[Rfam]
RNA sequence: CAGGCUCCGGUUCACGCCGUGGCGACACGCGACGGCGACCCGGCGGCC
Numbered sequence: 001c002a003g004g005c006u007c008c009g010g011u012u013c014a015c016g017c018c019g020u021g022g023c024g025a026c027a028c029g030c031g032a033c034g035g036c037g038a039c040c041c042g043g044c045g046g047c048c
Base pairs, nucleotide, nucleotide: 003048004047005046007043008042009041010040015037016036017035018034019033020032022030023029
The record is a 48-nucleotide RNA sequence from Pseudofrankia inefficax, which matches "L31-Actinobacteria ribosomal protein leader" in Rfam. It is annotated as a cis-regulatory leader. On this family, see Eckert and Weinberg, BMC Microbiol 2020: "Discovery of 20 novel ribosomal leader candidates in bacteria and archaea". Taxonomically the source falls in Pseudofrankia (Bacteria, Actinomycetota, Frankiales, Frankiaceae). The family's consensus secondary structure is taken from published work.